[Rfam]
RNA sequence: AGGUGCUCGAAGACCGUACCAGAAGUGUUUUUGACAUGGACUCACGGUUUUUGCCGUUCCCAAAUCAUGUAAAUGCACUAUCUGGUACGACACUUCGGCGCCC
Numbered sequence: 001a002g003g004u005g006c007u008c009g010a011a012g013a014c015c016g017u018a019c020c021a022g023a024a025g026u027g028u029u030u031u032u033g034a035c036a037u038g039g040a041c042u043c044a045c046g047g048u049u050u051u052u053g054c055c056g057u058u059c060c061c062a063a064a065u066c067a068u069g070u071a072a073a074u075g076c077a078c079u080a081u082c083u084g085g086u087a088c089g090a091c092a093c094u095u096c097g098g099c100g101c102c103c
Stems, first nucleotide, its partner, number of pairs: 008097004015089009025078001027076002030073003034070006
Notes: The family of this 103-nucleotide RNA from Aphis glycines is "mir-277 microRNA precursor family". The match comes from Rfam's covariance-model search (55 bits). Taxonomically the source falls in Aphis (Eukaryota, Bilateria, Sternorrhyncha, Aphidinae). Its family is annotated with miRNA-mediated post-transcriptional gene silencing and RISC complex in the Gene Ontology.